Rfam assigns this 72-nucleotide sequence from Eschrichtius robustus to the family "tRNA". NCBI's taxonomy places the organism under Eukaryota, Tetrapoda, Artiodactyla, Whippomorpha, Eschrichtius.

RNA sequence: UCCCUGGCGGUCCAGUGGUUAGGACUUGGCACUUUCACUGCUAGGGCCCGGGUUCAAUCCCUGGCCGGAGAA
Number, nucleotide and partner (000 for none) at each position: 001u071002c070003c000004c068005u067006g066007g065008c000009g000010g025011u024012c023013c022014a000015g000016u000017g000018g000019u000020u000021a000022g013023g012024a011025c010026u000027u043028g042029g041030c040031a039032c000033u000034u000035u000036c000037a000038c000039u031040g030041c029042u028043a027044g000045g000046g000047c000048c064049c063050g062051g061052g060053u000054u000055c000056a000057a000058u000059c000060c052061c051062u050063g049064g048065c007066c006067g005068g004069a000070g002071a001072a000
By type it is a transfer RNA.